[Rfam]
Nucleotides: 101
Base pairs, nucleotide, nucleotide: 001101002100003099021082022081023080024079030072031071032070033069034068039064040063041057042056043055044054045053
Number, partner (000 for none) and nucleotide at each position: 001101u002100g003099c004000u005000a006000u007000g008000a009000u010000g011000u012000u013000g014000u015000a016000a017000u018000u019000u020000g021082c022081g023080u024079c025000c026000u027000a028000c029000u030072c031071u032070g033069u034068a035000c036000a037000c038000g039064g040063u041057g042056a043055c044054a045053g046000u047000u048000g049000c050000c051000u052000g053045c054044u055043g056042u057041c058000g059000u060000u061000a062000u063040g064039c065000u066000g067000g068034u069033a070032c071031a072030g073000a074000u075000g076000a077000u078000u079024g080023a081022c082021g083000a084000a085000a086000a087000u088000u089000u090000a091000u092000u093000g094000u095000c096000u097000g098000a099003g100002c101001a

A member of the RNA family "Small nucleolar RNA SNORD16" from Geotrypetes seraphini, 101 nucleotides long. It is annotated as a C/D-box small nucleolar RNA. For this family Rfam cites "RNomics: an experimental approach that identifies 201 candidates for novel, small, non-messenger RNAs in mouse" (Huttenhofer et al., EMBO J, 2001). NCBI's taxonomy places the organism under Eukaryota, Chordata, Gymnophiona, Dermophiidae, Geotrypetes. The family has 5 seed sequences and 1,321 matches in Rfam 15.1.